[Rfam]
RNA: M-box riboswitch aptamer (ykoK leader)
RNA sequence: CGUGCACCUCGCUAGGUGAGGCUUCUGCACCGGACACAGGCCACUGACCCCGAACGUCGAGAGACGGGUCAGGACAGCUCCUCCCGGCCUAAGGGUUGAGCCCAAGUGGCUUCCGAAGAUUGAUCGGAUACGCCGUGCAGUGCCGAAACCCGGACGAGUGGGGUGUCGC
Number, nucleotide and partner (000 for none) at each position: 001c000002g000003u000004g000005c165006a164007c163008c162009u161010c160011g155012c000013u092014a000015g150016g149017u148018g000019a000020g144021g143022c142023u000024u000025c140026u139027g138028c137029a136030c135031c000032g134033g133034a000035c000036a000037c000038a000039g000040g110041c109042c108043a107044c106045u000046g070047a069048c068049c067050c066051c000052g000053a000054a000055c000056g065057u064058c063059g000060a000061g000062a000063g058064a057065c056066g050067g049068g048069u047070c046071a000072g000073g000074a000075c000076a000077g101078c100079u099080c098081c000082u000083c095084c094085c093086g000087g000088c000089c000090u000091a000092a013093g085094g084095g083096u000097u000098g080099a079100g078101c077102c000103c000104a000105a000106g044107u043108g042109g041110c040111u000112u128113c127114c126115g125116a124117a000118g000119a000120u000121u000122g000123a000124u116125c115126g114127g113128a112129u000130a000131c000132g000133c033134c032135g030136u029137g028138c027139a026140g025141u000142g022143c021144c020145g000146a000147a000148a017149c016150c015151c000152g000153g000154a000155c011156g000157a000158g000159u000160g010161g009162g008163g007164u006165g005166u000167c000168g000169c000